Small nucleolar RNA R11/Z151: an 89-nucleotide RNA sequence from Solanum lycopersicum.
Rfam 15.1 lists 802 matches to the family in 218 species.
Gene Ontology terms of the family: nucleolus and RNA processing.
Pairs were carried over by alignment from the consensus structure, which was predicted with PFOLD.
[Rfam]
RNA sequence: UGGCUUAUGAUGAUAAAGUUAAUUAUCUUAGCGGAUUUCAGUGAGAUUUAAUUAUCAAUGAUCUGAUUGUGUUACACACACUGAAGCCU
Numbered sequence: 001u002g003g004c005u006u007a008u009g010a011u012g013a014u015a016a017a018g019u020u021a022a023u024u025a026u027c028u029u030a031g032c033g034g035a036u037u038u039c040a041g042u043g044a045g046a047u048u049u050a051a052u053u054a055u056c057a058a059u060g061a062u063c064u065g066a067u068u069g070u071g072u073u074a075c076a077c078a079c080a081c082u083g084a085a086g087c088c089u
Base pairs, nucleotide, nucleotide: 002088003087004086005085
Annotation: The organism belongs to Solanum subgen. Lycopersicon, within Eukaryota. The match comes from Rfam's covariance-model search (92 bits). For this family Rfam cites "Identification of 66 box C/D snoRNAs in Arabidopsis thaliana: extensive gene duplications generated multiple isoforms predicting new ribosomal RNA 2'-O-methylation sites" (Barneche et al., J Mol Biol, 2001).